[Rfam]
RNA sequence: CGCCCUGCAGGAGAUGGCAUUCCUCCCAGAACCGCCGCGCCGCCCUCCGGUGCAGCUGAUGAUGCCUACGUAACC
Numbered sequence: 001c002g003c004c005c006u007g008c009a010g011g012a013g014a015u016g017g018c019a020u021u022c023c024u025c026c027c028a029g030a031a032c033c034g035c036c037g038c039g040c041c042g043c044c045c046u047c048c049g050g051u052g053c054a055g056c057u058g059a060u061g062a063u064g065c066c067u068a069c070g071u072a073a074c075c
Base pairs, nucleotide, nucleotide: 010026011025012024013023016066017065018064019063020062021061034056035055037053038052039051040050041049042048